[Rfam]
RNA sequence: CCCGGCCGCGGCUCCCUUGGCCGGUGUGGUACAGAGAAGCCGGCUUGUUUACGUGCCCGGCCCGG
Number, nucleotide and partner (000 for none) at each position: 001c000002c065003c064004g063005g062006c000007c060008g000009c000010g057011g056012c055013u000014c000015c000016c047017u000018u000019g045020g044021c043022c042023g041024g040025u039026g032027u031028g000029g000030u000031a027032c026033a000034g000035a000036g000037a000038a000039g025040c024041c023042g022043g021044c020045u019046u000047g016048u000049u000050u000051a000052c000053g000054u000055g012056c011057c010058c000059g000060g007061c000062c005063c004064g003065g002
RNA: MAT2A 3'UTR stem loop F